The record is an 86-nucleotide RNA sequence from Xylophilus sp. Leaf220, which matches "Burkholderia RNA 7 (anti-hemB)" in Rfam. Taxonomically the source falls in Xylophilus (Bacteria, Pseudomonadati, Pseudomonadota, Betaproteobacteria). This RNA motif was identified by computational search in b-proteobacteria Burkholderia. Co-purified with Hfq, expression confirmed by Northern blot. Rfam 15.1 lists 479 matches to the family in 458 species. The match comes from Rfam's covariance-model search (59 bits). The family's RNA type in Rfam is small RNA.
[Rfam]
RNA sequence: UCCCCCGCUUUUCCUCCCUGAGCGGGUACUUCGCGCCUGCGGGCCCGAGGUUUACCCAACCCGGCCAUGUGCCGGGUUUUUUUUGU
Numbered sequence: 001u002c003c004c005c006c007g008c009u010u011u012u013c014c015u016c017c018c019u020g021a022g023c024g025g026g027u028a029c030u031u032c033g034c035g036c037c038u039g040c041g042g043g044c045c046c047g048a049g050g051u052u053u054a055c056c057c058a059a060c061c062c063g064g065c066c067a068u069g070u071g072c073c074g075g076g077u078u079u080u081u082u083u084u085g086u
Stems, first nucleotide, its partner, number of pairs: 004026006028051006058078008